[Rfam]
RNA sequence: CCUGCAAGUGAUGACAAGAUAGACAGGGACUCGGCACUCUUUACAGAGAAUGAUGACUUGGUCUAUGGGAAUCUAUCUGAUGCACA
Numbered sequence: 001c002c003u004g005c006a007a008g009u010g011a012u013g014a015c016a017a018g019a020u021a022g023a024c025a026g027g028g029a030c031u032c033g034g035c036a037c038u039c040u041u042u043a044c045a046g047a048g049a050a051u052g053a054u055g056a057c058u059u060g061g062u063c064u065a066u067g068g069g070a071a072u073c074u075a076u077c078u079g080a081u082g083c084a085c086a
Base pairs, nucleotide, nucleotide: 003084004083005082006081